[Rfam]
Source information
This 67-nucleotide sequence from Anser brachyrhynchus belongs to the Rfam family "Small nucleolar RNA SNORD42". Pairs were carried over by alignment from the consensus structure, which was predicted with PFOLD. Rfam describes the family as follows. snoRNA U42 is found in intron 3 of the ribosomal protein L23a (RPL23a) gene in humans and is also present in mice. Rfam classes the family as a C/D-box small nucleolar RNA. The organism belongs to Anser, within Eukaryota. Gene Ontology terms of the family: nucleolus and RNA processing.

RNA sequence: GUGCAGAUGAUGUUAACGUGUUUUACCCCUGAGUGAAGUGAUGUUUCCAAAGGAACCACUGAUGCAC
Numbered sequence: 001g002u003g004c005a006g007a008u009g010a011u012g013u014u015a016a017c018g019u020g021u022u023u024u025a026c027c028c029c030u031g032a033g034u035g036a037a038g039u040g041a042u043g044u045u046u047c048c049a050a051a052g053g054a055a056c057c058a059c060u061g062a063u064g065c066a067c
Stems, first nucleotide, its partner, number of pairs: 001067005